RNA sequence: UCUCCUUUAUUUCAAAACUCUUGUAUAAGCUCAUUAAUCUGGUUUGAGCGUUUCUACAGGCAACCGUAAAUUGCCCCAGGCUACAAGAGGCACCGCAGAGCAG
Numbered sequence: 001u002c003u004c005c006u007u008u009a010u011u012u013c014a015a016a017a018c019u020c021u022u023g024u025a026u027a028a029g030c031u032c033a034u035u036a037a038u039c040u041g042g043u044u045u046g047a048g049c050g051u052u053u054c055u056a057c058a059g060g061c062a063a064c065c066g067u068a069a070a071u072u073g074c075c076c077c078a079g080g081c082u083a084c085a086a087g088a089g090g091c092a093c094c095g096c097a098g099a100g101c102a103g
Stems, first nucleotide, its partner, number of pairs: 018089008029049005059075005
Description: This 103-nucleotide sequence from Paenibacillus graminis belongs to the Rfam family "Purine riboswitch aptamer". The family's consensus secondary structure is taken from published work. A reference for the family is Mandal et al. (2003), "Riboswitches Control Fundamental Biochemical Pathways in Bacillus subtilis and Other Bacteria", Cell.